[Rfam]
RNA sequence: AUGCUUUACUAUACGCACAAUGAACUCAGUGCAGAUCGGUUUAGUCACCGUGCUGAGAGUACAUGGAUAUCGCCUUGUGUAAAUUGGGAUACUGGUUUGCAGUAAGGUUCGAAAGAUCGUGAGGUCUAUCAGAAUACCGGGCAAAGUCCUAAAGAUAAGUGUAUGUACUAAUUGUAGAUGUAGUAAAUUGUUCAAAUCCGGUCGCAGCAAUAAUAGAGAGCCGCUCUGCGGUGCUGAAGCCUGAUGCCUAUAGUUUGGUACUCUAUAGGAGUUAAGUAAGGUAAUACCAACAUAAGCUGUUUGUCGUGAUGAUUUAGAAAUGAAUCGUAUAAGACCGGUUAUUGGAUCGAGUAGCCCAAGACAAUUAAUUAUUCUAAUCAAAUUAUAGCUAUGGUCUAUAAGUACAAGAAUAUUGGUCAUACUGAAUGAUGGGUGAAAGUUGUGAGUGAAGAAUCUCGCCGAUGGUUGUGGAGUGAUCCACUGGGCAAAAAGCGUAUGAGCGACGGUUCAUAUGCUCAGUUUUGUCUACAUCGUGACAGAAUAUUAUGGGUCUAUGAUUGGCAAUCCGAAGGGAUCAUUGUGCUUAUAAUAAAGC
Number, nucleotide and partner (000 for none) at each position: 001a000002u000003g000004c000005u000006u000007u592008a000009c000010u589011a000012u000013a000014c000015g584016c000017a000018c000019a000020a579021u000022g000023a000024a000025c057026u056027c055028a054029g053030u000031g000032c000033a000034g000035a000036u000037c050038g049039g048040u047041u000042u000043a000044g000045u000046c000047a040048c039049c038050g037051u000052g000053c029054u028055g027056a026057g025058a000059g164060u163061a162062c161063a160064u159065g000066g000067a000068u000069a000070u000071c000072g000073c107074c106075u105076u104077g103078u102079g100080u099081a098082a097083a096084u095085u094086g093087g092088g000089a000090u000091a000092c087093u086094g085095g084096u083097u082098u081099g080100c079101a000102g078103u077104a076105a075106g074107g073108u134109u133110c132111g130112a129113a000114a127115g126116a125117u124118c123119g000120u000121g000122a000123g118124g117125u116126c115127u114128a000129u112130c111131a000132g110133a109134a108135u000136a000137c000138c000139g149140g148141g147142c146143a000144a000145a000146g142147u141148c140149c139150u000151a000152a000153a000154g000155a000156u000157a000158a000159g064160u063161g062162u061163a060164u059165g000166u000167a000168c000169u000170a000171a559172u000173u557174g000175u000176a000177g553178a000179u000180g000181u000182a000183g000184u000185a000186a545187a000188u000189u000190g000191u000192u000193c344194a343195a342196a340197u000198c338199c337200g336201g335202u334203c333204g300205c299206a298207g297208c296209a000210a000211u000212a000213a000214u000215a000216g000217a000218g000219a000220g000221c231222c230223g229224c228225u000226c000227u000228g224229c223230g222231g221232u000233g000234c000235u000236g000237a000238a000239g282240c281241c280242u279243g000244a000245u000246g000247c269248c268249u267250a266251u000252a264253g263254u000255u000256u289257g288258g287259u286260a000261c000262u000263c253264u252265a000266u250267a249268g248269g247270a000271g000272u000273u000274a000275a000276g000277u000278a000279a242280g241281g240282u239283a000284a000285u000286a259287c258288c257289a256290a000291c000292a000293u000294a000295a000296g208297c207298u206299g205300u204301u364302u363303g362304u361305c360306g000307u000308g000309a000310u000311g326312a325313u324314u323315u322316a000317g000318a000319a000320a000321u000322g315323a314324a313325u312326c311327g000328u000329a000330u000331a000332a000333g203334a202335c201336c200337g199338g198339u000340u196341a000342u195343u194344g193345g000346a000347u000348c439349g000350a000351g000352u000353a000354g434355c433356c432357c431358a430359a000360g305361a304362c303363a302364a301365u000366u000367a000368a000369u000370u000371a000372u000373u000374c000375u000376a000377a000378u000379c000380a000381a000382a000383u000384u000385a000386u000387a000388g000389c000390u000391a000392u000393g000394g000395u000396c000397u000398a000399u000400a000401a000402g000403u000404a000405c000406a000407a000408g000409a000410a000411u000412a000413u000414u000415g000416g000417u000418c000419a000420u000421a520422c519423u518424g517425a000426a000427u000428g000429a000430u358431g357432g356433g355434u354435g000436a000437a000438a000439g348440u000441u000442g000443u000444g000445a000446g456447u000448g000449a000450a000451g000452a000453a000454u000455c000456u446457c000458g000459c000460c000461g532462a531463u530464g000465g000466u000467u000468g000469u000470g478471g000472a000473g000474u000475g000476a000477u000478c470479c000480a000481c000482u000483g000484g527485g526486c000487a000488a523489a522490a000491a521492g516493c000494g513495u512496a511497u000498g509499a508500g507501c506502g000503a000504c000505g000506g501507u500508u499509c498510a000511u496512a495513u494514g000515c000516u492517c424518a423519g422520u421521u491522u489523u488524g000525u000526c485527u484528a000529c000530a463531u462532c461533g000534u000535g000536a000537c000538a000539g000540a000541a000542u000543a000544u000545u186546a000547u000548g000549g000550g000551u000552c000553u177554a000555u000556g000557a173558u000559u171560g000561g000562c000563a000564a575565u574566c573567c572568g000569a000570a000571g000572g567573g566574a565575u564576c000577a000578u000579u020580g000581u000582g000583c000584u015585u000586a000587u000588a000589a010590u000591a000592a007593a000594g000595c000

A member of the RNA family "ROOL RNA", 595 nucleotides long. Rfam describes the family as follows. Firmicutes, Fusobacteria (1 example), Tenericutes (1 example). The family's RNA type in Rfam is small RNA.